[Rfam]
This 168-nucleotide sequence from Brassica carinata belongs to the Rfam family "small nucleolar RNA snoR143". It scores 104 bits against the family's covariance model. The source organism's lineage runs through Eukaryota, Euphyllophyta, Gunneridae, Pentapetalae and Brassica. The literature on the family includes a 2009 paper in Nucleic Acids Res by Chen and Wu, "Mining small RNA sequencing data: a new approach to identify small nucleolar RNAs in Arabidopsis". Rfam 15.1 lists 660 matches to the family in 212 species. The family's RNA type in Rfam is H/ACA-box small nucleolar RNA.

RNA sequence: UUGCACCUUGUAUCGAAGGUCAUGCCCCGUUCUGGUGGCUUGGCCGUUUGUCGAGGAUGCGUAUAUGAAUCGCUGUUAAGUCAGCAAGCGGCCAGACAACCGUUGGGAUAGAUCCACAGGUGAAACAGAUGUUUCUCUGUUUUCAGCUACUAAAUCUAUUCUACACUU
Numbered sequence: 001u002u003g004c005a006c007c008u009u010g011u012a013u014c015g016a017a018g019g020u021c022a023u024g025c026c027c028c029g030u031u032c033u034g035g036u037g038g039c040u041u042g043g044c045c046g047u048u049u050g051u052c053g054a055g056g057a058u059g060c061g062u063a064u065a066u067g068a069a070u071c072g073c074u075g076u077u078a079a080g081u082c083a084g085c086a087a088g089c090g091g092c093c094a095g096a097c098a099a100c101c102g103u104u105g106g107g108a109u110a111g112a113u114c115c116a117c118a119g120g121u122g123a124a125a126c127a128g129a130u131g132u133u134u135c136u137c138u139g140u141u142u143u144c145a146g147c148u149a150c151u152a153a154a155u156c157u158a159u160u161c162u163a164c165a166c167u168u
Base pairs, nucleotide, nucleotide: 002061003060004059005058009053010052014050015049016048017047018045019044020043021042022041024039025038026037105162106161107160108159109158110157111156112155122143123142124141125140126139127138128137